[Rfam]
RNA: Bradyrhizobiaceae sRNA BjrC174
RNA sequence: GUCACGGGAUCGUUAGCGGAAUCAUAAUGCCGCCCUACUUCCGCCCAGCGACCGCCCUGCUGGAUUGCGAGAAAGAAUCACUGCGUUGGCCCGGUCCUUUCGGUUCCGGAUUCCUCAGCCCCCAGCCCCCCGGGGUCGUCAGGAUCGGGCCUGUUCGCAGGAUAGUUUAUCCCCAUACUGGACCAGCGAAAGUUGGUCCUUUU
Numbered sequence: 001g002u003c004a005c006g007g008g009a010u011c012g013u014u015a016g017c018g019g020a021a022u023c024a025u026a027a028u029g030c031c032g033c034c035c036u037a038c039u040u041c042c043g044c045c046c047a048g049c050g051a052c053c054g055c056c057c058u059g060c061u062g063g064a065u066u067g068c069g070a071g072a073a074a075g076a077a078u079c080a081c082u083g084c085g086u087u088g089g090c091c092c093g094g095u096c097c098u099u100u101c102g103g104u105u106c107c108g109g110a111u112u113c114c115u116c117a118g119c120c121c122c123c124a125g126c127c128c129c130c131c132g133g134g135g136u137c138g139u140c141a142g143g144a145u146c147g148g149g150c151c152u153g154u155u156c157g158c159a160g161g162a163u164a165g166u167u168u169a170u171c172c173c174c175a176u177a178c179u180g181g182a183c184c185a186g187c188g189a190a191a192g193u194u195g196g197u198c199c200u201u202u203u
Stems, first nucleotide, its partner, number of pairs: 037167001039051001042048001081160005088151011101138009118126002180199008